The record is a 169-nucleotide sequence from Sodalis glossinidius, which matches "Group II catalytic intron D1-D4-3" in Rfam. Group II introns are found in rRNA, tRNA and mRNA of organelles in fungi, plants and protists, and also in mRNA in bacteria. Gene Ontology term of the family: Group II intron splicing.

[Rfam]
RNA sequence: GCAAGGGUGACUGAGCGUGGGGAGGAAGUGUAGAGAGAAACUGCGAGCCGAUGAACAAGAAUCGGAUAGAAGGCGCUGGCGAGCAGGGUGAGUGGGCUAGAAACCGUGAAACUCUUGUGGUCAAGGCGAGGUGGCGUAGAUCCGGUGGUUGUGCAGUGAAGGAAUGCGU
Numbered sequence: 001g002c003a004a005g006g007g008u009g010a011c012u013g014a015g016c017g018u019g020g021g022g023a024g025g026a027a028g029u030g031u032a033g034a035g036a037g038a039a040a041c042u043g044c045g046a047g048c049c050g051a052u053g054a055a056c057a058a059g060a061a062u063c064g065g066a067u068a069g070a071a072g073g074c075g076c077u078g079g080c081g082a083g084c085a086g087g088g089u090g091a092g093u094g095g096g097c098u099a100g101a102a103a104c105c106g107u108g109a110a111a112c113u114c115u116u117g118u119g120g121u122c123a124a125g126g127c128g129a130g131g132u133g134g135c136g137u138a139g140a141u142c143c144g145g146u147g148g149u150u151g152u153g154c155a156g157u158g159a160a161g162g163a164a165u166g167c168g169u
Base pairs, nucleotide, nucleotide: 001016002015005012006011028169029168030167031166032165040157041156042155043154044153045152046150047149048148049147050146062145063144064143065142066141067140073137074136075135077129080128083127084126086114087113088112089111092107093106094105095104